[Rfam]
RNA sequence: ACCACGCCUAGGCCGACGGGCCGAAAACAGGACCCCUUCGCCUGUUGGCGUGGUUUUUCCAUAUCUGAGGG
Numbered sequence: 001a002c003c004a005c006g007c008c009u010a011g012g013c014c015g016a017c018g019g020g021c022c023g024a025a026a027a028c029a030g031g032a033c034c035c036c037u038u039c040g041c042c043u044g045u046u047g048g049c050g051u052g053g054u055u056u057u058u059c060c061a062u063a064u065c066u067g068a069g070g071g
Stems, first nucleotide, its partner, number of pairs: 001054008011022004028044004035071006